Rfam assigns this 504-nucleotide sequence from Colletotrichum abscissum to the family "RNase MRP".
RNA sequence: CUCUCGUCCGACAAAUCGCCAUCGAAGCUCACAAACGGAGAUUUCCUUCACGGGAGUCUCAAAUGCGAAAGCUUUGGGAGAAAGUCCCCGGACACACGUUACUUUCCUGUUACAGGGGAAGCCAAAACGCCGCGGAAACGCGCCGCCAUAGAAGCACAGCGGCUGACCUCCAAGACCUGCGUCCGGACACAAUGAGCUCUUUCACAACCCUGCCCCGUCGCUACAUCGUUGGUCUUCUCUGCUCUUUCGAGACCCUGCUUCCGCUUUCCGGGACCCUUUGGAUGAAGAUAUGAGUCCGCGCCUGGGGAGUUGCGAGUCGGGGAUCAUGGGUUAGAGGAGCUUUCGAUGACGGGGUGGCCGUUGGUAGGGUCUCGCUUGCCGGGCGAAUUCAAGGGUUCGUCGGAGGGUCUUUCGUCGAGAUCGAUAGGUAUGCGAUUGCCCGUCCACGACCUCUGUACUGAGGUUGGGGCGUGUUACUCGAUGGGGCUUAUUCUUGGUGCGAGG
Numbered sequence: 001c002u003c004u005c006g007u008c009c010g011a012c013a014a015a016u017c018g019c020c021a022u023c024g025a026a027g028c029u030c031a032c033a034a035a036c037g038g039a040g041a042u043u044u045c046c047u048u049c050a051c052g053g054g055a056g057u058c059u060c061a062a063a064u065g066c067g068a069a070a071g072c073u074u075u076g077g078g079a080g081a082a083a084g085u086c087c088c089c090g091g092a093c094a095c096a097c098g099u100u101a102c103u104u105u106c107c108u109g110u111u112a113c114a115g116g117g118g119a120a121g122c123c124a125a126a127a128c129g130c131c132g133c134g135g136a137a138a139c140g141c142g143c144c145g146c147c148a149u150a151g152a153a154g155c156a157c158a159g160c161g162g163c164u165g166a167c168c169u170c171c172a173a174g175a176c177c178u179g180c181g182u183c184c185g186g187a188c189a190c191a192a193u194g195a196g197c198u199c200u201u202u203c204a205c206a207a208c209c210c211u212g213c214c215c216c217g218u219c220g221c222u223a224c225a226u227c228g229u230u231g232g233u234c235u236u237c238u239c240u241g242c243u244c245u246u247u248c249g250a251g252a253c254c255c256u257g258c259u260u261c262c263g264c265u266u267u268c269c270g271g272g273a274c275c276c277u278u279u280g281g282a283u284g285a286a287g288a289u290a291u292g293a294g295u296c297c298g299c300g301c302c303u304g305g306g307g308a309g310u311u312g313c314g315a316g317u318c319g320g321g322g323a324u325c326a327u328g329g330g331u332u333a334g335a336g337g338a339g340c341u342u343u344c345g346a347u348g349a350c351g352g353g354g355u356g357g358c359c360g361u362u363g364g365u366a367g368g369g370u371c372u373c374g375c376u377u378g379c380c381g382g383g384c385g386a387a388u389u390c391a392a393g394g395g396u397u398c399g400u401c402g403g404a405g406g407g408u409c410u411u412u413c414g415u416c417g418a419g420a421u422c423g424a425u426a427g428g429u430a431u432g433c434g435a436u437u438g439c440c441c442g443u444c445c446a447c448g449a450c451c452u453c454u455g456u457a458c459u460g461a462g463g464u465u466g467g468g469g470c471g472u473g474u475u476a477c478u479c480g481a482u483g484g485g486g487c488u489u490a491u492u493c494u495u496g497g498u499g500c501g502a503g504g
Stems, first nucleotide, its partner, number of pairs: 002504006008497004014437006022078001023076006038060009082489003086486004251409003258405002261403003269395001280390004373383001375381001439473001441471004